Rfam assigns this 58-nucleotide RNA from Carya illinoinensis to the family "Plastid-psbA-3 3UTR RNA". The match comes from Rfam's covariance-model search (55 bits). Rfam describes the family as follows. Plastid psbA-3 is a non-coding RNA (ncRNA) present in plastids. It was identified in inverted repeat sequences in the 3 prime untranslate region (3UTR) of photosystem II quinone-binding protein (psbA). Its Rfam clan is "Plastid-psbA 3UTR RNA clan".
RNA sequence: AAAGGAGUAAUACCAAUCCUCUUUAUAGAACAAGAAGUUGAUUAUUGCUCCUUUAUUU
Number, nucleotide and partner (000 for none) at each position: 001a054002a053003a052004g051005g050006a049007g048008u047009a046010a045011u044012a043013c000014c040015a000016a000017u000018c000019c000020u035021c034022u033023u032024u000025a000026u000027a000028g000029a000030a000031c000032a023033a022034g021035a020036a000037g000038u000039u000040g014041a000042u000043u012044a011045u010046u009047g008048c007049u006050c005051c004052u003053u002054u001055a000056u000057u000058u000